[Rfam]
RNA sequence: CAUCUUCUGAGAUAUGCGUAAGGUGAUUAGUUCUUUAAAUCCGAACAUUUCUGAUUAGGGAAUCCGAUUCGCUAGUGUGGUGUUGAAUGCCUAGCUUUUAUCACCUAGGACUCCUAAAACACUAGAUACGAUGCCCACCUGCUAUUUUAGCGGGUUUAUAUCCUAACACCUACGGUAUUUUGGAUAAACA
Numbered sequence: 001c002a003u004c005u006u007c008u009g010a011g012a013u014a015u016g017c018g019u020a021a022g023g024u025g026a027u028u029a030g031u032u033c034u035u036u037a038a039a040u041c042c043g044a045a046c047a048u049u050u051c052u053g054a055u056u057a058g059g060g061a062a063u064c065c066g067a068u069u070c071g072c073u074a075g076u077g078u079g080g081u082g083u084u085g086a087a088u089g090c091c092u093a094g095c096u097u098u099u100a101u102c103a104c105c106u107a108g109g110a111c112u113c114c115u116a117a118a119a120c121a122c123u124a125g126a127u128a129c130g131a132u133g134c135c136c137a138c139c140u141g142c143u144a145u146u147u148u149a150g151c152g153g154g155u156u157u158a159u160a161u162c163c164u165a166a167c168a169c170c171u172a173c174g175g176u177a178u179u180u181u182g183g184a185u186a187a188a189c190a
Stems, first nucleotide, its partner, number of pairs: 003187001006184010017174003034160001037157006058136003062132003067127001069126001072125007085113002090109005